[Rfam]
RNA sequence: GACCUUGGAGCAACAGCCUGAGGUUCACGCCCAAGGCUGACGGCUGGUGGCUCACGCCACCGGCCU
Numbered sequence: 001g002a003c004c005u006u007g008g009a010g011c012a013a014c015a016g017c018c019u020g021a022g023g024u025u026c027a028c029g030c031c032c033a034a035g036g037c038u039g040a041c042g043g044c045u046g047g048u049g050g051c052u053c054a055c056g057c058c059a060c061c062g063g064c065c066u
Stems, first nucleotide, its partner, number of pairs: 014039005022031002042065010
Dot-bracket structure: .............(((((...((......))...)))))..((((((((((....)))))))))).

Rfam assigns this 66-nucleotide RNA from Pseudomonas sp. URIL14HWK12:I9 to the family "Pseudomonas sRNA P26". The source organism's lineage runs through Bacteria, Pseudomonadota, Pseudomonadales, Pseudomonadaceae and Pseudomonas. Rfam describes the family as follows. This small RNA (sRNA) was computationally identified in the genome of the opportunistic pathogen Pseudomonas aeruginosa and its expression verified by northern blot analysis.